RNA: U7 small nuclear RNA
Organism: Chlorocebus sabaeus
RNA sequence: AAGUGUUACAGCUCUUUUAGAAUUUGUCUAGUGGGCUUUCUGGUUUUUAUGAGAAAGUCCUC
Number, nucleotide and partner (000 for none) at each position: 001a000002a000003g000004u000005g000006u000007u000008a000009c000010a000011g000012c000013u000014c000015u000016u000017u000018u000019a000020g000021a000022a000023u000024u000025u000026g000027u000028c000029u000030a000031g000032u000033g000034g059035g058036c057037u056038u055039u054040c053041u052042g000043g050044u049045u000046u000047u000048u000049a044050u043051g000052a041053g040054a039055a038056a037057g036058u035059c034060c000061u000062c000